[Rfam]
Rfam assigns this 88-nucleotide RNA sequence from Rubrivivax albus to the family "Burkholderia RNA 7 (anti-hemB)".
RNA sequence: UCCCCUGCUUUUCCUCCCUGAGCAGGUGCCUUACCGUAUGACAGCGAUAAGGCUUGCGGGCCCCGGCUUUCAGCCGGGGCUUUUUUUC
Number, nucleotide and partner (000 for none) at each position: 001u000002c000003c000004c026005c025006u024007g023008c022009u021010u000011u000012u000013c000014c000015u000016c000017c000018c000019u000020g000021a009022g008023c007024a006025g005026g004027u000028g053029c052030c051031u050032u049033a048034c000035c000036g000037u000038a000039u000040g000041a000042c000043a000044g000045c000046g000047a000048u033049a032050a031051g030052g029053c028054u000055u000056g000057c000058g000059g000060g080061c079062c078063c077064c076065g075066g074067c073068u000069u000070u000071c000072a000073g067074c066075c065076g064077g063078g062079g061080c060081u000082u000083u000084u000085u000086u000087u000088c000
On this family, see Weinberg et al., Nucleic Acids Res 2007: "Identification of 22 candidate structured RNAs in bacteria using the CMfinder comparative genomics pipeline". Gene Ontology terms of the family: protein binding and bacterial biofilm matrix. The family's RNA type in Rfam is small RNA.